[Rfam]
RNA: Bacterial RNase P class A
Organism: Microcella daejeonensis
RNA sequence: UGGGUCGGCCAGACGGUCGCGUCGGAUGCGCGCCCCCGCGAGGGGGGACGGCUCCGCCGAGGAACGUCCGGGCUCCAUAGAGCAGGGCGGUGGGUAACACCCACCCGGAGCAAUCCGCGAGAAAGUGCAACAGAGAGCAGACCGCCACCGGCGUCACGCCGGGGGUAAGGGUGAAACGGUGGUGUAAGAGACCACCAGGGGCCCGAGUGAUCGGGCUCGCUGGGUAAACCUCGCCCGGAGCAAGGUCGAACAGGCACUGUCGAAGCGGCUCGCUGAGGUGCCGGGUAGACCGCUGGAGGGUGUCGGCAACGGCUCCCCGAGAUAGAUGGCCGUCGAACGGGGUCCGCCCCGGGAACAGAACCCGGCGUAUCGGCCGGCCCGCUUG
Numbered sequence: 001u002g003g004g005u006c007g008g009c010c011a012g013a014c015g016g017u018c019g020c021g022u023c024g025g026a027u028g029c030g031c032g033c034c035c036c037c038g039c040g041a042g043g044g045g046g047g048a049c050g051g052c053u054c055c056g057c058c059g060a061g062g063a064a065c066g067u068c069c070g071g072g073c074u075c076c077a078u079a080g081a082g083c084a085g086g087g088c089g090g091u092g093g094g095u096a097a098c099a100c101c102c103a104c105c106c107g108g109a110g111c112a113a114u115c116c117g118c119g120a121g122a123a124a125g126u127g128c129a130a131c132a133g134a135g136a137g138c139a140g141a142c143c144g145c146c147a148c149c150g151g152c153g154u155c156a157c158g159c160c161g162g163g164g165g166u167a168a169g170g171g172u173g174a175a176a177c178g179g180u181g182g183u184g185u186a187a188g189a190g191a192c193c194a195c196c197a198g199g200g201g202c203c204c205g206a207g208u209g210a211u212c213g214g215g216c217u218c219g220c221u222g223g224g225u226a227a228a229c230c231u232c233g234c235c236c237g238g239a240g241c242a243a244g245g246u247c248g249a250a251c252a253g254g255c256a257c258u259g260u261c262g263a264a265g266c267g268g269c270u271c272g273c274u275g276a277g278g279u280g281c282c283g284g285g286u287a288g289a290c291c292g293c294u295g296g297a298g299g300g301u302g303u304c305g306g307c308a309a310c311g312g313c314u315c316c317c318c319g320a321g322a323u324a325g326a327u328g329g330c331c332g333u334c335g336a337a338c339g340g341g342g343u344c345c346g347c348c349c350c351g352g353g354a355a356c357a358g359a360a361c362c363c364g365g366c367g368u369a370u371c372g373g374c375c376g377g378c379c380c381g382c383u384u385g
Base pairs, nucleotide, nucleotide: 001381002380003379004378005377006376007375008374009373010372011370012334013333014332015331016330017329018328020059021058023056024055025054026053064368065367066366068365069364070363071362072361073240074239075238076237080271081270082269083268085236086235087234088233089232090104091103092102093101094100105119106117107116108115109114120231121230125229126228127225128224142170143169144166145165146164148162149161150160151159152158178196179195180194181193182192183191198220199218200217201216202215203214204213205212206211244291245290246289247288253282254281255280256279257278258277264274265273266272298317299316300315302313303312304311305310